[Rfam]
RNA: TPP riboswitch aptamer (THI element)
RNA sequence: CUGCCAACCAAGGGGUGCCGAAUCCGGCUGAGAUCUGUUCGUAAAACAGGAACCCUUUUACCUGAUCCGGAUAAUACCGGCGUAGGGAUGGUGUCAUAAUGCAAC
Numbered sequence: 001c002u003g004c005c006a007a008c009c010a011a012g013g014g015g016u017g018c019c020g021a022a023u024c025c026g027g028c029u030g031a032g033a034u035c036u037g038u039u040c041g042u043a044a045a046a047c048a049g050g051a052a053c054c055c056u057u058u059u060a061c062c063u064g065a066u067c068c069g070g071a072u073a074a075u076a077c078c079g080g081c082g083u084a085g086g087g088a089u090g091g092u093g094u095c096a097u098a099a100u101g102c103a104a105c
Base pairs, nucleotide, nucleotide: 007092008091009090010089011056012055013054014053016050017028018027019026020025035049036048037047038046039045061086062085063084064083067080068079069078070077